[Rfam]
Shown here is a 78-nucleotide RNA sequence from Conger conger, a member of the family "mir-26 microRNA precursor family". The family has 82 seed sequences and 2,251 matches in Rfam 15.1.
RNA sequence: CCACUUCCUGAAACAAGUAAUCAAGAAUAGGCCGUGCUGGACAACAGCCUAUCCUGGAUUACUUGAACCAGGCUGAGG
Dot-bracket structure: .(.(..((((...(((((((((.((.((((((..............)))))).)).)))))))))...))))..).).
Numbered sequence: 001c002c003a004c005u006u007c008c009u010g011a012a013a014c015a016a017g018u019a020a021u022c023a024a025g026a027a028u029a030g031g032c033c034g035u036g037c038u039g040g041a042c043a044a045c046a047g048c049c050u051a052u053c054c055u056g057g058a059u060u061a062c063u064u065g066a067a068c069c070a071g072g073c074u075g076a077g078g
Stems, first nucleotide, its partner, number of pairs: 002077001004075001007072004014065009024055002027052006
Notes
Its family is annotated with RISC complex and miRNA-mediated post-transcriptional gene silencing in the Gene Ontology.